[Rfam]
This 78-nucleotide sequence from Occallatibacter riparius belongs to the Rfam family "Fluoride riboswitch aptamer (crcB RNA motif)".

RNA sequence: AGACGUGGUGGUGAUGGAGUUCACCCUUAACCGCUGUCCUCUCUAGGUGGCUGGACAGAUGAUGACUCCUGACAGGGA
Numbered sequence: 001a002g003a004c005g006u007g008g009u010g011g012u013g014a015u016g017g018a019g020u021u022c023a024c025c026c027u028u029a030a031c032c033g034c035u036g037u038c039c040u041c042u043c044u045a046g047g048u049g050g051c052u053g054g055a056c057a058g059a060u061g062a063u064g065a066c067u068c069c070u071g072a073c074a075g076g077g078a
Stems, first nucleotide, its partner, number of pairs: 010025004016069006034058006